Rfam assigns this 73-nucleotide sequence from Prevotella koreensis to the family "tRNA". The source organism's lineage runs through Bacteria, Bacteroidota, Bacteroidia, Prevotellaceae and Prevotella. The base pairs follow the family's consensus structure, which is taken from published work. By type it is a transfer RNA.
RNA sequence: GCACUUGUAGCUCAGUUGGUAGAGCACCUGACUCUUAAUCAGGGUGUCCAGGGUUCGAACCCCUGCAGGUGUA
Numbered sequence: 001g002c003a004c005u006u007g008u009a010g011c012u013c014a015g016u017u018g019g020u021a022g023a024g025c026a027c028c029u030g031a032c033u034c035u036u037a038a039u040c041a042g043g044g045u046g047u048c049c050a051g052g053g054u055u056c057g058a059a060c061c062c063c064u065g066c067a068g069g070u071g072u073a
Stems, first nucleotide, its partner, number of pairs: 001072007010025004027043005049065005